[Rfam]
RNA sequence: GGGGCCGCCCGGUUUUGACAGCAUCAUGGAGGGGGAGGUGUAAGCAUGCAACGCGUUGUGUAAUUAGCGUUUAAAUCUGAAUACUCAAACUUCAAAUGGCAAUACUCAGUAUGCCAUGGCUGCCUAAUCAGUGAUUAGUUAGUCAUUAGGGCCGCCCGGGCAGGUUGAUCUGUUACCAAGCCCCGCCGCCGACUCAAAACAAAAUACAGGUUGCUGUUGCAGAAUGCCAUGACUGCAACUUAAGACCAUCUGGCUAAGCAUUGAUUCGGUUUGUCCGCUUCCUGAUCAUUGCCGACAAAUAAUAACGGAAUAAGCAUGUAGAAAGCUUUUUCAUCCGGUGUUUGGACGCGGGUUCGAUUCCCGCCGGCUCCACAA
Dot-bracket structure: (((((((...........(((((((.......((((.(.((...((((((((((..[[.[[[....)))))..........]]].]]............................((.((((......)))).))...............(.((.(((((..(((...[.[[[[)))....))))..).)).)....]]]].].....[[.[..[[.........((((....]]..].]].........))))...(((.(((((.((....[[[[.[.)).))))).)))...........].]]]]....)))))......)).)))))....)))).)))...(((((.......))))))))))))....
RNA: transfer-messenger RNA